This 38-nucleotide RNA sequence from Photobacterium lipolyticum belongs to the Rfam family "JUMPstart RNA". NCBI's taxonomy places the organism under Bacteria, Pseudomonadati, Pseudomonadota, Gammaproteobacteria, Photobacterium. It is annotated as a cis-regulatory element.
[Rfam]
RNA sequence: AAGCGCAUUGGGGGCUGAAACCCAAGGGCGGUAGCAUG
Numbered sequence: 001a002a003g004c005g006c007a008u009u010g011g012g013g014g015c016u017g018a019a020a021c022c023c024a025a026g027g028g029c030g031g032u033a034g035c036a037u038g
Stems, first nucleotide, its partner, number of pairs: 008025005